[Rfam]
Nucleotides: 158
Base pairs, nucleotide, nucleotide: 004154005153006152007151008150009149010148011147013144014143015142017141018140019139032127033126034125035124037122038121040117041116042115056101057100058099060097061096062095063094064093069090070089071088072087073086074085075084076083077082
Number, partner (000 for none) and nucleotide at each position: 001000u002000c003000c004154g005153g006152g007151c008150u009149g010148c011147g012000g013144g014143g015142c016000g017141c018140g019139u020000u021000a022000g023000g024000a025000g026000c027000a028000u029000u030000u031000a032127u033126u034125c035124c036000a037122g038121g039000g040117c041116c042115c043000u044000a045000u046000a047000a048000g049000a050000u051000u052000c053000c054000a055000u056101g057100g058099g059000a060097g061096u062095u063094g064093a065000c066000c067000c068000u069090g070089a071088c072087g073086g074085a075084g076083a077082u078000c079000g080000u081000g082077g083076u084075c085074u086073c087072u088071g089070u090069c091000a092000c093064u094063c095062g096061g097060c098000g099058c100057c101056c102000a103000c104000c105000u106000a107000c108000u109000u110000a111000a112000g113000u114000a115042g116041g117040g118000a119000c120000a121038c122037c123000c124035g125034g126033g127032a128000u129000c130000u131000u132000c133000g134000c135000u136000c137000c138000g139019a140018c141017g142015g143014c144013c145000a146000c147011c148010g149009c150008g151007g152006c153005c154004c155000c156000c157000a158000u